[Rfam]
The record is a 92-nucleotide sequence from Umboniibacter marinipuniceus, which matches "t44 RNA" in Rfam. It scores 78 bits against the family's covariance model. This family consists of a number of bacterial RNA genes of between 135 and 170 bases in length. The t44 gene has been identified in several species of enteric bacteria but homologs have also been identified in Pseudomonas and Coxiella species. The t44 gene is found between the map and rpsB genes in all species in the full alignment apart from Shigella flexneri. The function of this RNA is unknown. The organism belongs to Umboniibacter, within Bacteria.
RNA sequence: UAAACUUUAAAUUUAACUCUCACAUACAUCGGCACGAUUACUUGGGUGCCCCUAUUUACGGGGUUGGUAAUUGGGAUGUGUGGAGGCAUAAC
Numbered sequence: 001u002a003a004a005c006u007u008u009a010a011a012u013u014u015a016a017c018u019c020u021c022a023c024a025u026a027c028a029u030c031g032g033c034a035c036g037a038u039u040a041c042u043u044g045g046g047u048g049c050c051c052c053u054a055u056u057u058a059c060g061g062g063g064u065u066g067g068u069a070a071u072u073g074g075g076a077u078g079u080g081u082g083g084a085g086g087c088a089u090a091a092c
Stems, first nucleotide, its partner, number of pairs: 023082008035073008048064005